[Rfam]
c-di-AMP riboswitch aptamer (ydaO/yuaA leader): a 150-nucleotide RNA sequence from Flavimobilis marinus.

RNA sequence: UGGAGAUCGUGACCCAGAACCACACGGCAGCGGCGGGGGACCCACCAACCGGUCGCGCACGUGACGACCUUGGGGUGAAGCCGGAACUCUCCGGCCGGGUCCACCUCGACCCGAACCCGACAGCUCACCUCGUAGGCGUCCUGAGGUCAC
Number, nucleotide and partner (000 for none) at each position: 001u000002g000003g000004a000005g000006a000007u000008c000009g000010u000011g000012a000013c000014c000015c000016a000017g000018a000019a000020c000021c000022a000023c000024a000025c000026g000027g000028c000029a000030g000031c000032g000033g133034c132035g131036g130037g129038g128039g000040a000041c000042c000043c072044a071045c000046c000047a000048a000049c000050c000051g000052g000053u000054c000055g000056c000057g000058c000059a000060c000061g000062u000063g000064a000065c000066g000067a000068c000069c000070u000071u044072g043073g118074g117075g116076u000077g000078a000079a000080g000081c094082c093083g092084g091085a000086a000087c000088u000089c000090u000091c084092c083093g082094g081095c000096c000097g112098g111099g110100u109101c000102c000103a000104c000105c000106u000107c000108g000109a100110c099111c098112c097113g000114a000115a000116c075117c074118c073119g000120a000121c000122a000123g000124c000125u000126c000127a000128c038129c037130u036131c035132g034133u033134a000135g000136g000137c000138g000139u000140c000141c000142u000143g000144a000145g000146g000147u000148c000149a000150c000